[Rfam]
RNA: Small nucleolar RNA SNORD35
Organism: Puma concolor
RNA sequence: GGCAGAUGAUGUCUCUUUCUCACGAUGGUCUGCGGAUGCCACUGCUGGCAGUGCCGACAACGCCAAUGGCUCAGCUGAUGCCAGGAG
Dot-bracket structure: ((((..........................................................................)))).....